About this RNA: The family of this 110-nucleotide RNA from Actinidia chinensis is "Small nucleolar RNA Z279/snoR105/snoR108". On this family, see Marker et al., Curr Biol 2002: "Experimental RNomics: identification of 140 candidates for small non-messenger RNAs in the plant Arabidopsis thaliana". Gene Ontology terms of the family: RNA processing and nucleolus. Rfam describes the family as follows. This family includes the plant snoRNAs known as Z279, snoR105 and snoR108. Rfam classes the family as a C/D-box small nucleolar RNA.
[Rfam]
RNA sequence: GGGAUGUGAUGAGUGGUCAACACUCGCAAUAAAAAAUGCGAGAUGGGUGCUACGGCACAAAGCCUGGUUACGACAAAUGCGGGCACUCUCAUCUGAACCAAUCUGAUCCC
Number, nucleotide and partner (000 for none) at each position: 001g110002g109003g108004a107005u000006g000007u000008g000009a000010u000011g000012a000013g000014u100015g099016g098017u097018c000019a000020a000021c000022a000023c042024u041025c040026g039027c038028a000029a000030u000031a000032a000033a000034a000035a000036a000037u000038g027039c026040g025041a024042g023043a000044u000045g088046g087047g086048u085049g084050c083051u082052a000053c000054g000055g000056c000057a000058c000059a000060a000061a000062g000063c000064c000065u079066g078067g000068u076069u000070a000071c000072g000073a000074c000075a000076a068077a000078u066079g065080c000081g000082g051083g050084c049085a048086c047087u046088c045089u000090c000091a000092u000093c000094u000095g000096a000097a017098c016099c015100a014101a000102u000103c000104u000105g000106a000107u004108c003109c002110c001